[Rfam]
RNA sequence: AUCGGAGCGGCGCGUCCAGGACUGUCCACCCUGAGAAUGGUAUCGGUGAGCUCAAUCUCAGGAUAGUCAGCCCAUGAGGCGUCGCUCGCC
Numbered sequence: 001a002u003c004g005g006a007g008c009g010g011c012g013c014g015u016c017c018a019g020g021a022c023u024g025u026c027c028a029c030c031c032u033g034a035g036a037a038u039g040g041u042a043u044c045g046g047u048g049a050g051c052u053c054a055a056u057c058u059c060a061g062g063a064u065a066g067u068c069a070g071c072c073c074a075u076g077a078g079g080c081g082u083c084g085c086u087c088g089c090c
Stems, first nucleotide, its partner, number of pairs: 005087009015077002019073002022070003026066001028064001030062007038054002
Shown here is a 90-nucleotide sequence from Scleropages formosus, a member of the family "mir-1388 microRNA precursor family". The organism belongs to Scleropages, within Eukaryota. It scores 71 bits against the family's covariance model.